[Rfam]
RNA sequence: GUCCAUAAAUGAAUAUUAGCUCGUAUAAUCGCAGGGAUAUGGCUUGCAAGUUUCUACCGGUCCACCGUAAAUGGACUGACUACGAGUGAUGGAUCUUUUUUG
Numbered sequence: 001g002u003c004c005a006u007a008a009a010u011g012a013a014u015a016u017u018a019g020c021u022c023g024u025a026u027a028a029u030c031g032c033a034g035g036g037a038u039a040u041g042g043c044u045u046g047c048a049a050g051u052u053u054c055u056a057c058c059g060g061u062c063c064a065c066c067g068u069a070a071a072u073g074g075a076c077u078g079a080c081u082a083c084g085a086g087u088g089a090u091g092g093a094u095c096u097u098u099u100u101u102g
Stems, first nucleotide, its partner, number of pairs: 019087007029049001031047005058078007

The record is a 102-nucleotide RNA sequence from Ammoniphilus sp. CFH 90114, which matches "Purine riboswitch aptamer" in Rfam. Gene Ontology term of the family: purine nucleobase biosynthetic process. Taxonomically the source falls in Ammoniphilus (Bacteria, Bacillati, Bacillota, Bacilli). Pairs were carried over by alignment from the consensus structure, which is taken from published work.